[Rfam]
RNA sequence: UCCGAUACGCCGGGGAGCUCGGAGCAGAUCGAGCUGAGAGGGUGGCUGGGCACAACACGUGCCAGCGCCACCGACCCGCGAACCUGAACUGGGUAAUGCCAGCGGAGGGAUGCGUCGUAGUGCUUGUG
Numbered sequence: 001u002c003c004g005a006u007a008c009g010c011c012g013g014g015g016a017g018c019u020c021g022g023a024g025c026a027g028a029u030c031g032a033g034c035u036g037a038g039a040g041g042g043u044g045g046c047u048g049g050g051c052a053c054a055a056c057a058c059g060u061g062c063c064a065g066c067g068c069c070a071c072c073g074a075c076c077c078g079c080g081a082a083c084c085u086g087a088a089c090u091g092g093g094u095a096a097u098g099c100c101a102g103c104g105g106a107g108g109g110a111u112g113c114g115u116c117g118u119a120g121u122g123c124u125u126g127u128g
Stems, first nucleotide, its partner, number of pairs: 007115004011078004017034005041072005083108003089102004
The record is a 128-nucleotide sequence from Sanguibacter gelidistatuariae, which matches "TPP riboswitch aptamer (THI element)" in Rfam. Pairs were carried over by alignment from the consensus structure, which is taken from published work. The source organism's lineage runs through Bacteria, Bacillati, Actinomycetes, Micrococcales and Sanguibacter. From the family's description: Vitamin B(1) in its active form thiamin pyrophosphate (TPP) is an essential coenzyme that is synthesised by coupling of pyrimidine and thiazole moieties in bacteria.